[Rfam]
RNA sequence: CCUGACUAUGAUGACCCACUUGCCCUAUCUGAGAGAAGCUCUAUUAUGAAACAAUCAAAAAUCCUCAUUUCCCUGAGUCAGU
Numbered sequence: 001c002c003u004g005a006c007u008a009u010g011a012u013g014a015c016c017c018a019c020u021u022g023c024c025c026u027a028u029c030u031g032a033g034a035g036a037a038g039c040u041c042u043a044u045u046a047u048g049a050a051a052c053a054a055u056c057a058a059a060a061a062u063c064c065u066c067a068u069u070u071c072c073c074u075g076a077g078u079c080a081g082u
Stems, first nucleotide, its partner, number of pairs: 002081005